[Rfam]
RNA sequence: CGACCGGGUCGGACAGCCGCGGACGCAUGCCGAAAGGCAGCGGAUGAGGAAAGUCCGGGCUCCACAGGGCAAGGAUAACGGGUAACGCCCGCCGAGAGUGAUCUCAGGACAAGUGCAACAGAGAGAUACCGCGUUCCGCGUCCUCAGGGUGCAGAACGUAAGGGUGAAAAGGUGGGGUAAGAGCCCACCCGGCCUGUGGAAACACAGGUUUUACGAUGUAAACUCUAUCCGGAGCAACGCCGUGGAGGAACACAUGGUCUGCCCGACCGUUCCGAGGAGGCGGCUUGAUCCCGGGAGCAACCCCGGGACUAGAUAGAUGGCUGUCAAGACAGAACCCGGCUUAUAGACCCGCGUCGCCAA
Numbered sequence: 001c002g003a004c005c006g007g008g009u010c011g012g013a014c015a016g017c018c019g020c021g022g023a024c025g026c027a028u029g030c031c032g033a034a035a036g037g038c039a040g041c042g043g044a045u046g047a048g049g050a051a052a053g054u055c056c057g058g059g060c061u062c063c064a065c066a067g068g069g070c071a072a073g074g075a076u077a078a079c080g081g082g083u084a085a086c087g088c089c090c091g092c093c094g095a096g097a098g099u100g101a102u103c104u105c106a107g108g109a110c111a112a113g114u115g116c117a118a119c120a121g122a123g124a125g126a127u128a129c130c131g132c133g134u135u136c137c138g139c140g141u142c143c144u145c146a147g148g149g150u151g152c153a154g155a156a157c158g159u160a161a162g163g164g165u166g167a168a169a170a171g172g173u174g175g176g177g178u179a180a181g182a183g184c185c186c187a188c189c190c191g192g193c194c195u196g197u198g199g200a201a202a203c204a205c206a207g208g209u210u211u212u213a214c215g216a217u218g219u220a221a222a223c224u225c226u227a228u229c230c231g232g233a234g235c236a237a238c239g240c241c242g243u244g245g246a247g248g249a250a251c252a253c254a255u256g257g258u259c260u261g262c263c264c265g266a267c268c269g270u271u272c273c274g275a276g277g278a279g280g281c282g283g284c285u286u287g288a289u290c291c292c293g294g295g296a297g298c299a300a301c302c303c304c305g306g307g308a309c310u311a312g313a314u315a316g317a318u319g320g321c322u323g324u325c326a327a328g329a330c331a332g333a334a335c336c337c338g339g340c341u342u343a344u345a346g347a348c349c350c351g352c353g354u355c356g357c358c359a360a
Base pairs, nucleotide, nucleotide: 001356002355003354004353005351006350007349008348009347010346011344012325013324014323015322016321017320018319020046021045024042025041026040051342052341053340055339056338057337058336059335060234061233062232063231068264069263073230074229075228076227077226079091080090081089082088093107094105095104096103097102108225109224113223114222115219116218117217129163130162131159132158133157134156135155136154138152139151140150141149142148171189172188173187174186175185176184191210192209193208194207195206196205197204198203238282239281240280241279247273248272249271255269256268257267258266259265289308290307291306292305293304294303295302